[Rfam]
RNA sequence: CUUCAACGAGCCGAGCCACAAGGGCUGUUCUGCGGGCCGGUCCUUGCCGUAGGUGGCGAGCAGCGCCUGCGCCUC
Numbered sequence: 001c002u003u004c005a006a007c008g009a010g011c012c013g014a015g016c017c018a019c020a021a022g023g024g025c026u027g028u029u030c031u032g033c034g035g036g037c038c039g040g041u042c043c044u045u046g047c048c049g050u051a052g053g054u055g056g057c058g059a060g061c062a063g064c065g066c067c068u069g070c071g072c073c074u075c
Stems, first nucleotide, its partner, number of pairs: 014026004031071003038065002043060003047056003

Shown here is a 75-nucleotide RNA sequence from Streptomyces sp. RP5T, a member of the family "ASpks TB sRNA". Taxonomically the source falls in Streptomyces (Bacteria, Bacillati, Actinomycetes, Streptomycetaceae). The match comes from Rfam's covariance-model search (88 bits). Rfam classes the family as an antisense RNA.